[Rfam]
RNA sequence: UUCAAAUGAUUUGAAUUGAUGAGCUGAUGCUCUGUAAGGUAUAAUAAUUAAUAGCAUGUAAGAGUUCUGAUGAAA
Numbered sequence: 001u002u003c004a005a006a007u008g009a010u011u012u013g014a015a016u017u018g019a020u021g022a023g024c025u026g027a028u029g030c031u032c033u034g035u036a037a038g039g040u041a042u043a044a045u046a047a048u049u050a051a052u053a054g055c056a057u058g059u060a061a062g063a064g065u066u067c068u069g070a071u072g073a074a075a
Stems, first nucleotide, its partner, number of pairs: 001074004

About this RNA:
The record is a 75-nucleotide sequence from Marmota monax, which matches "Small nucleolar RNA SNORD28" in Rfam. The organism belongs to Marmota, within Eukaryota.